[Rfam]
RNA sequence: UAUAACAGAAGAGGAGCACUACCCAGGCAGGUGUUUUGUGGAGCCACUACUCCAAAACAAAUCAUUUAUGGGGAGUAGUGCCGAGAUAACGUUACAAGUGGACAACGUUAUCGGGUGAAUGGGCUGAAUCCCUUCAACUGUCGCCAUUGAUUGUGCGAAGAGCUUCUGAGGUU
Number, nucleotide and partner (000 for none) at each position: 001u000002a000003u000004a000005a000006c168007a167008g166009a165010a164011g163012a000013g000014g000015a000016g081017c080018a079019c078020u077021a076022c075023c000024c073025a000026g000027g000028c000029a000030g066031g065032u064033g063034u000035u061036u060037u059038g000039u000040g000041g000042a000043g000044c000045c000046a000047c000048u000049a000050c000051u000052c000053c000054a000055a000056a000057a000058c000059a037060a036061a035062u000063c033064a032065u031066u030067u000068a000069u000070g000071g000072g000073g024074a000075g022076u021077a020078g019079u018080g017081c016082c000083g000084a000085g112086a111087u110088a109089a108090c107091g106092u105093u104094a000095c000096a000097a000098g000099u000100g000101g000102a000103c000104a093105a092106c091107g090108u089109u088110a087111u086112c085113g139114g138115g000116u136117g135118a134119a133120u000121g132122g131123g130124c000125u000126g000127a000128a000129u000130c123131c122132c121133u119134u118135c117136a116137a000138c114139u113140g000141u158142c157143g156144c155145c000146a000147u000148u000149g000150a000151u000152u000153g000154u000155g144156c143157g142158a141159a000160g000161a000162g000163c011164u010165u009166c008167u007168g006169a000170g000171g000172u000173u000